[Rfam]
Nucleotides: 138
Base pairs, nucleotide, nucleotide: 006044008042009041010040011039013037014036015035016034017033073134074133076131077130078129079128082122084120085119091117093115094114095113096112097111099109
Number, partner (000 for none) and nucleotide at each position: 001000u002000a003000a004000a005000u006044g007000a008042a009041u010040g011039a012000g013037g014036a015035g016034g017033c018000a019000g020000c021000u022000u023000u024000a025000u026000g027000a028000g029000a030000u031000u032000c033017g034016u035015c036014u037013c038000u039011u040010c041009a042008u043000a044006u045000a046000a047000g048000a049000a050000c051000a052000u053000c054000g055000a056000g057000g058000u059000a060000u061000a062000u063000c064000a065000a066000a067000a068000u069000c070000a071000a072000a073134g074133g075000c076131c077130g078129a079128g080000a081000u082122a083000u084120c085119g086000u087000u088000u089000c090000a091117g092000c093115c094114g095113u096112c097111a098000u099109u100000u101000u102000u103000u104000c105000c106000u107000c108000c109099a110000u111097u112096g113095a114094c115093g116000u117091u118000c119085u120084g121000c122082u123000u124000g125000u126000u127000c128079u129078u130077c131076g132000u133074c134073c135000a136000c137000a138000c